[Rfam]
Nucleotides: 089
Base pairs, nucleotide, nucleotide: 012037013036017032018031019030020029021028022027040083041082042081043080045079046078047077048074049073050072055068056067057066058065
Number, partner (000 for none) and nucleotide at each position: 001000a002000u003000a004000a005000u006000g007000a008000a009000a010000a011000g012037g013036c014000a015000a016000a017032c018031u019030u020029a021028u022027u023000g024000a025000a026000a027022g028021a029020u030019a031018a032017g033000g034000a035000c036013g037012c038000a039000a040083a041082a042081c043080u044000u045079c046078a047077g048074a049073u050072c051000u052000a053000a054000g055068g056067u057066g058065a059000a060000u061000u062000u063000u064000a065058u066057u067056a068055c069000u070000a071000g072050g073049a074048u075000g076000g077047c078046u079045g080043a081042g082041u083040u084000a085000c086000c087000g088000a089000a